The record is a 359-nucleotide RNA from Bythopirellula polymerisocia, which matches "transfer-messenger RNA" in Rfam. By type it is a non-coding RNA gene. The match comes from Rfam's covariance-model search (168 bits). The family's consensus secondary structure is taken from published work. From the family's description: Bacterial tmRNA, also known as 10Sa RNA or SsrA, is named for its dual tRNA and mRNA-like properties. Its role is to liberate the mRNA from a stalled ribosome. To accomplish this part of the tmRNA is used as a reading frame that ends in a translation stop signal. The broken mRNA is replaced in the ribosome by the tmRNA and translation of the tmRNA leads to addition of a proteolysis tag to the incomplete protein enabling recognition by a protease. Recently a number of permuted tmRNA genes have been found encoded in two parts. tmRNAs have been identified in eubacteria and some chloroplasts but are absent from archaeal and eukaryote nuclear genomes.
RNA sequence: GGGGGCGAACUGGGUUCGACCGGGUAGAUGAAGCGUAAGUCGCGUGUCGUGGUUGAUCAGUGGGCCACGUAAAAAGCUGAUCACAAUGUCAAUUGCCAAUGGCAAUUACGCUUUGGCUGCCUAAAUAAAGGCGCCCGGACUAGAGGCUGAAGUCGGAUUGGCCUGGACGUCCGUCACUAAAUCCGAACCGCUGCGAGUCACUGCCGGGUACGUUCGCAGUUAAAAAAGUUCUUGGCUAGCAAGCAGGUAACCUGGUCGACUGGGUGACCCGCAAGUGAAAUUAAAUCAGUCGGCUACACACGUAGAAGCUUGCGUGGAGCUAUGUCGGGACGCGGGUUCAAUUCCCGCCGCCUCCACUA
Numbered sequence: 001g002g003g004g005g006c007g008a009a010c011u012g013g014g015u016u017c018g019a020c021c022g023g024g025u026a027g028a029u030g031a032a033g034c035g036u037a038a039g040u041c042g043c044g045u046g047u048c049g050u051g052g053u054u055g056a057u058c059a060g061u062g063g064g065c066c067a068c069g070u071a072a073a074a075a076g077c078u079g080a081u082c083a084c085a086a087u088g089u090c091a092a093u094u095g096c097c098a099a100u101g102g103c104a105a106u107u108a109c110g111c112u113u114u115g116g117c118u119g120c121c122u123a124a125a126u127a128a129a130g131g132c133g134c135c136c137g138g139a140c141u142a143g144a145g146g147c148u149g150a151a152g153u154c155g156g157a158u159u160g161g162c163c164u165g166g167a168c169g170u171c172c173g174u175c176a177c178u179a180a181a182u183c184c185g186a187a188c189c190g191c192u193g194c195g196a197g198u199c200a201c202u203g204c205c206g207g208g209u210a211c212g213u214u215c216g217c218a219g220u221u222a223a224a225a226a227a228g229u230u231c232u233u234g235g236c237u238a239g240c241a242a243g244c245a246g247g248u249a250a251c252c253u254g255g256u257c258g259a260c261u262g263g264g265u266g267a268c269c270c271g272c273a274a275g276u277g278a279a280a281u282u283a284a285a286u287c288a289g290u291c292g293g294c295u296a297c298a299c300a301c302g303u304a305g306a307a308g309c310u311u312g313c314g315u316g317g318a319g320c321u322a323u324g325u326c327g328g329g330a331c332g333c334g335g336g337u338u339c340a341a342u343u344c345c346c347g348c349c350g351c352c353u354c355c356a357c358u359a
Stems, first nucleotide, its partner, number of pairs: 001355007020328004024323004029318001033315008043302005048069005056081006116135001118133003136173005144164004153186006191219006203236005239276002243272002246269003250265003254294001256292001262286001332348005